[Rfam]
This 69-nucleotide sequence from Kutzneria viridogrisea belongs to the Rfam family "ASpks TB sRNA". Lineage of the source: Bacteria > Bacillati > Actinomycetes > Pseudonocardiaceae > Kutzneria viridogrisea. It scores 60 bits against the family's covariance model. Rfam classes the family as an antisense RNA.
RNA sequence: CUUCACCGAGCCCAGCCACAGCGGGUUCUCGCGGCCCUUGCCGUAGGUGGAGAUCAGCGCGUGCGCCUC
Numbered sequence: 001c002u003u004c005a006c007c008g009a010g011c012c013c014a015g016c017c018a019c020a021g022c023g024g025g026u027u028c029u030c031g032c033g034g035c036c037c038u039u040g041c042c043g044u045a046g047g048u049g050g051a052g053a054u055c056a057g058c059g060c061g062u063g064c065g066c067c068u069c
Stems, first nucleotide, its partner, number of pairs: 014026001016024002028065001030063001032059002038053002041050003